[Rfam]
RNA sequence: GAUCGACCAUGGCAAAACCACUGUGAAGUGGUGACGCAAAGCUCCAGAGCCCACGUGGCUGGCUGGGCCGCCGAA
Numbered sequence: 001g002a003u004c005g006a007c008c009a010u011g012g013c014a015a016a017a018c019c020a021c022u023g024u025g026a027a028g029u030g031g032u033g034a035c036g037c038a039a040a041g042c043u044c045c046a047g048a049g050c051c052c053a054c055g056u057g058g059c060u061g062g063c064u065g066g067g068c069c070g071c072c073g074a075a
Stems, first nucleotide, its partner, number of pairs: 012037002017032006041068003045065003048060003
This 75-nucleotide RNA from Deinococcus peraridilitoris belongs to the Rfam family "c-di-GMP-I riboswitch aptamer". Clan: c-di-GMP_I riboswitch clan. The base pairs follow the family's consensus structure, which is taken from published work.